[Rfam]
RNA sequence: UUAUCAGUGAGUUUACUCCUUAACCUGUUGCCUUCCUUGGAGAAACAGAAACAUGAUGAAUGGAGGAGGUGAGUGAUGAUUACUCCAAUACUCCAGUGCUGUCUGGGAUGACAACAGCCAGAUGAAGCCAUUCUGAU
Numbered sequence: 001u002u003a004u005c006a007g008u009g010a011g012u013u014u015a016c017u018c019c020u021u022a023a024c025c026u027g028u029u030g031c032c033u034u035c036c037u038u039g040g041a042g043a044a045a046c047a048g049a050a051a052c053a054u055g056a057u058g059a060a061u062g063g064a065g066g067a068g069g070u071g072a073g074u075g076a077u078g079a080u081u082a083c084u085c086c087a088a089u090a091c092u093c094c095a096g097u098g099c100u101g102u103c104u105g106g107g108a109u110g111a112c113a114a115c116a117g118c119c120a121g122a123u124g125a126a127g128c129c130a131u132u133c134u135g136a137u
Stems, first nucleotide, its partner, number of pairs: 025048003029045001032042003071093002074090002077082001097126001099124001101123006
Shown here is a 137-nucleotide RNA sequence from Hymenochirus boettgeri, a member of the family "U8 small nucleolar RNA". The source organism's lineage runs through Eukaryota, Opisthokonta, Teleostomi, Batrachia and Hymenochirus. It is annotated as a C/D-box small nucleolar RNA. Rfam 15.1 lists 1,597 matches to the family in 457 species. Its family is annotated with RNA processing and nucleolus in the Gene Ontology. On this family, see Hokii et al., Nucleic Acids Res 2010: "A small nucleolar RNA functions in rRNA processing in Caenorhabditis elegans".